[Rfam]
RNA: Archaeal large subunit ribosomal RNA, nucleotides 927 to 1378
RNA sequence: CCAACCGAAGCAUCUCGUAGGGUGUCCUUUGUGGAGAUGGCGCUUCCUGUAGAGCACUGAUAAGGUAGACCGGGGAAGAAAUUCCUCACUACCUAUUCAAACUCCGAAUGGAUGCGCAUCGUAGAAGCAAGGAGACGGGUUUGCGUGACGUAAGGUUCGCAACCGAGAGGGGUUUAACCCAGACCAAAGUUAAGGUCCCUAAAUUUAUGCUAAGUGUCAAGCGGAAGAGCGUCAUUACGCCAAGACAGCAGGGAGGUAAGCUCAGAAGCAGCUAUCCUUUAAAAAGUGUGUAACAACUUACCUGCCGAGCGUGGUGGCCUCGAAAAUGGACGGGGCUAAAGCAUAGUACCGAUACUUUGGAUACUUGCCUUAGGGCAAGUCAUGGUAGGUUGGCGUGGUGAUUGGGUCGAAGCAGGGUCGUAAGGUCCUGUGGACCGAUUGCUAUUGCAGAU
Numbered sequence: 001c002c003a004a005c006c007g008a009a010g011c012a013u014c015u016c017g018u019a020g021g022g023u024g025u026c027c028u029u030u031g032u033g034g035a036g037a038u039g040g041c042g043c044u045u046c047c048u049g050u051a052g053a054g055c056a057c058u059g060a061u062a063a064g065g066u067a068g069a070c071c072g073g074g075g076a077a078g079a080a081a082u083u084c085c086u087c088a089c090u091a092c093c094u095a096u097u098c099a100a101a102c103u104c105c106g107a108a109u110g111g112a113u114g115c116g117c118a119u120c121g122u123a124g125a126a127g128c129a130a131g132g133a134g135a136c137g138g139g140u141u142u143g144c145g146u147g148a149c150g151u152a153a154g155g156u157u158c159g160c161a162a163c164c165g166a167g168a169g170g171g172g173u174u175u176a177a178c179c180c181a182g183a184c185c186a187a188a189g190u191u192a193a194g195g196u197c198c199c200u201a202a203a204u205u206u207a208u209g210c211u212a213a214g215u216g217u218c219a220a221g222c223g224g225a226a227g228a229g230c231g232u233c234a235u236u237a238c239g240c241c242a243a244g245a246c247a248g249c250a251g252g253g254a255g256g257u258a259a260g261c262u263c264a265g266a267a268g269c270a271g272c273u274a275u276c277c278u279u280u281a282a283a284a285a286g287u288g289u290g291u292a293a294c295a296a297c298u299u300a301c302c303u304g305c306c307g308a309g310c311g312u313g314g315u316g317g318c319c320u321c322g323a324a325a326a327u328g329g330a331c332g333g334g335g336c337u338a339a340a341g342c343a344u345a346g347u348a349c350c351g352a353u354a355c356u357u358u359g360g361a362u363a364c365u366u367g368c369c370u371u372a373g374g375g376c377a378a379g380u381c382a383u384g385g386u387a388g389g390u391u392g393g394c395g396u397g398g399u400g401a402u403u404g405g406g407u408c409g410a411a412g413c414a415g416g417g418u419c420g421u422a423a424g425g426u427c428c429u430g431u432g433g434a435c436c437g438a439u440u441g442c443u444a445u446u447g448c449a450g451a452u
Base pairs, nucleotide, nucleotide: 001393002392003391004390005389006388011024012023013022014021015020026134027132028131029130030129031128032127036120037119038118040117041116042115043114045112046111047110052105053103054102059098060097063094064093065092066091067090068089072087073086074085075084076083077082138164139163141162142161143160144159145158147157148156169180170179171178184360185359186358187357188356189355190354194350195349196348203347205346206345207344208343209342210341227321228320229319231318232317233316234315235314236313237312238311239310240309248305249304250303251302252301254278255277256276259273260272261271279283284299288297289296361383362382363380364379365378366377367376394447396444397443398442399441400440401439402438403437404436405435412431413430414429415428416427417426418425419424